[Rfam]
RNA sequence: GUCGCAACCUCGGGGAGCCAAUGACCUUGGCUGAGAUGCGCUAUGCGAACCCGUUGAACCUGAACCGGUUAAGACCGGCGGAGGGAAGGUAACGGGUGCUCUG
Number, nucleotide and partner (000 for none) at each position: 001g000002u000003c000004g000005c000006a000007a090008c089009c088010u087011c053012g052013g051014g050015g000016a000017g031018c030019c029020a028021a027022u000023g000024a000025c000026c000027u021028u020029g019030g018031c017032u000033g000034a000035g000036a000037u000038g046039c045040g000041c000042u000043a000044u000045g039046c038047g000048a000049a000050c014051c013052c012053g011054u000055u000056g000057a000058a000059c084060c083061u082062g000063a000064a000065c078066c077067g076068g075069u000070u000071a000072a000073g000074a000075c068076c067077g066078g065079c000080g000081g000082a061083g060084g059085g000086a000087a010088g009089g008090u007091a000092a000093c000094g000095g000096g000097u000098g000099c000100u000101c000102u000103g000